Rfam assigns this 87-nucleotide sequence from Triticum aestivum to the family "MIR1120/MIR1122 microRNA precursor family". The base pairs follow the family's consensus structure, which was predicted with RNAalifold. Gene Ontology terms of the family: miRNA-mediated post-transcriptional gene silencing and RISC complex. Rfam 15.1 lists 44,765 matches to the family in 8 species. The organism belongs to Triticum, within Eukaryota.

[Rfam]
RNA sequence: AUACUCCCUCUGUCCCGUAAUGUAAGACCUUUUUUGAUACUACACUAGUGUUAAAAAACGUCUUACAUUAUGAGAUGGAGGGAGUAC
Numbered sequence: 001a002u003a004c005u006c007c008c009u010c011u012g013u014c015c016c017g018u019a020a021u022g023u024a025a026g027a028c029c030u031u032u033u034u035u036g037a038u039a040c041u042a043c044a045c046u047a048g049u050g051u052u053a054a055a056a057a058a059c060g061u062c063u064u065a066c067a068u069u070a071u072g073a074g075a076u077g078g079a080g081g082g083a084g085u086a087c
Stems, first nucleotide, its partner, number of pairs: 003085003007081005013075002016072002019069010030058012